This 73-nucleotide RNA sequence from Bacteroides luti belongs to the Rfam family "tRNA". A search with the family's covariance model found it, with a score of 60 bits. The organism belongs to Bacteroides, within Bacteria.
[Rfam]
RNA sequence: CGCGGAGUGGAGCAGUUGGUAGCUCGUUGGGCUCAUAACCCAAAGGUCGUUCGUUCGAGUCGAGCCUCCGCAA
Numbered sequence: 001c002g003c004g005g006a007g008u009g010g011a012g013c014a015g016u017u018g019g020u021a022g023c024u025c026g027u028u029g030g031g032c033u034c035a036u037a038a039c040c041c042a043a044a045g046g047u048c049g050u051u052c053g054u055u056c057g058a059g060u061c062g063a064g065c066c067u068c069c070g071c072a073a
Stems, first nucleotide, its partner, number of pairs: 002071006010025004027043005049065005